RNA sequence: UGGGGUUGAUUAGGCCACAGCAGAAGUGCUUACAGUGUAGCCUGUCAGAUUCCAACAGAUUUGUGAAUUCUGCU
Numbered sequence: 001u002g003g004g005g006u007u008g009a010u011u012a013g014g015c016c017a018c019a020g021c022a023g024a025a026g027u028g029c030u031u032a033c034a035g036u037g038u039a040g041c042c043u044g045u046c047a048g049a050u051u052c053c054a055a056c057a058g059a060u061u062u063g064u065g066a067a068u069u070c071u072g073c074u
Base pairs, nucleotide, nucleotide: 013042014041015040019074020073021072022071023070024069025068026038027037028036046063047062048061049060050059051058
RNA: Mammalian CPEB3 ribozyme